[Rfam]
RNA sequence: GCCCAGAUGAACACCGGUGGUCCGGUGUGCGGGCUUCAAACCCGUAGCUUACGAGAGUAAGAAUGGUUCGAUUCCAUCUUCUGGGC
Numbered sequence: 001g002c003c004c005a006g007a008u009g010a011a012c013a014c015c016g017g018u019g020g021u022c023c024g025g026u027g028u029g030c031g032g033g034c035u036u037c038a039a040a041c042c043c044g045u046a047g048c049u050u051a052c053g054a055g056a057g058u059a060a061g062a063a064u065g066g067u068u069c070g071a072u073u074c075c076a077u078c079u080u081c082u083g084g085g086c
Stems, first nucleotide, its partner, number of pairs: 001086007009078001012027006028046006048061005063077004